Nucleotides: 123
Base pairs, nucleotide, nucleotide: 007037008036009035011033012032013031014030015029043076044075045074046073047072048071049070050069051068052067087118088117089116090115091114092113093112094111095110096109097108
Number, partner (000 for none) and nucleotide at each position: 001000a002000u003000c004000g005000g006000u007037c008036g009035g010000c011033a012032g013031c014030g015029c016000a017000c018000u019000c020000c021000u022000c023000c024000u025000c026000c027000c028000a029015g030014c031013g032012c033011u034000c035009c036008c037007g038000a039000u040000a041000c042000g043076g044075a045074u046073u047072g048071g049070c050069g051068a052067c053000a054000a055000c056000u057000c058000c059000u060000c061000c062000u063000c064000c065000c066000g067052g068051u069050u070049g071048c072047c073046a074045a075044u076043c077000a078000g079000a080000a081000c082000a083000g084000g085000c086000a087118a088117c089116g090115c091114c092113c093112g094111c095110u096109g097108g098000a099000c100000c101000u102000c103000c104000u105000c106000c107000c108097c109096c110095a111094g112093u113092g114091g115090g116089c117088g118087u119000u120000g121000u122000u123000u

The family of this 123-nucleotide RNA sequence from Ensifer fredii is "Alphaproteobacterial ar14".
The base pairs follow the family's consensus structure.
A reference for the family is del Val et al. (2012), "A survey of sRNA families in alpha-proteobacteria", RNA Biol.
Rfam's curators write: Smr14C2 was renamed NfeR1 (Nodule Formation Efficiency RNA) highly expressed in salt stress and during the symbiotic interaction on legume roots.
It is annotated as a small RNA.